[Rfam]
Nucleotides: 130
Stems, first nucleotide, its partner, number of pairs: 028055006034042003092117009
Number, partner (000 for none) and nucleotide at each position: 001000u002000a003000u004000c005000a006000a007000c008000g009000u010000u011000a012000a013000a014000a015000u016000u017000a018000a019000c020000c021000g022000c023000a024000g025000a026000c027000a028055g029054u030053a031052g032051g033050g034042a035041g036040u037000u038000a039000u040036a041035c042034u043000u044000u045000a046000a047000a048000a049000a050033u051032c052031c053030u054029a055028c056000c057000g058000a059000g060000g061000u062000a063000a064000g065000u066000a067000u068000c069000g070000a071000u072000u073000u074000u075000u076000u077000a078000a079000u080000a081000u082000c083000g084000a085000a086000u087000u088000u089000c090000u091000u092117a093116a094115u095114c096113u097112c098111a099110u100109c101000a102000g103000g104000u105000c106000u107000g108000c109100g110099a111098u112097g113096a114095g115094a116093u117092u118000u119000u120000u121000u122000u123000a124000u125000a126000u127000u128000c129000a130000g

Ribosomal protein L10 leader: a 130-nucleotide RNA from Peptoniphilus sp. oral taxon 386.
The base pairs follow the family's consensus structure, which was predicted with CMfinder.
The match comes from Rfam's covariance-model search (74 bits).
Rfam describes the family as follows. This family is a putative r-protein leader autoregulatory structure found in B. subtilis and other low-GC Gram-positive bacteria. It is located in the 5' untranslated regions of mRNAs encoding ribosomal proteins L10 and L12 (rplJ-rplL).
It is annotated as a cis-regulatory leader.
The source organism's lineage runs through Bacteria, Bacillati, Tissierellales, Peptoniphilaceae and Peptoniphilus sp. oral taxon 386.